[Rfam]
RNA sequence: CGACCCCGUGCGGGAGAGACCCCUGUUCGGCAGGGGCGCCGAAGGAGCAACCUUCUCCCCGGAAUCUCUCAGGCACCCGUACCGCACGGGCGAG
Numbered sequence: 001c002g003a004c005c006c007c008g009u010g011c012g013g014g015a016g017a018g019a020c021c022c023c024u025g026u027u028c029g030g031c032a033g034g035g036g037c038g039c040c041g042a043a044g045g046a047g048c049a050a051c052c053u054u055c056u057c058c059c060c061g062g063a064a065u066c067u068c069u070c071a072g073g074c075a076c077c078c079g080u081a082c083c084g085c086a087c088g089g090g091c092g093a094g
Stems, first nucleotide, its partner, number of pairs: 006089008020036004038074003041070002045068003051061001

Rfam assigns this 94-nucleotide sequence from Thermobispora bispora to the family "Glycine riboswitch aptamer".
Its family is annotated with glycine biosynthetic process in the Gene Ontology.
NCBI's taxonomy places the organism under Bacteria, Bacillati, Actinomycetes, Thermobispora, Thermobispora bispora.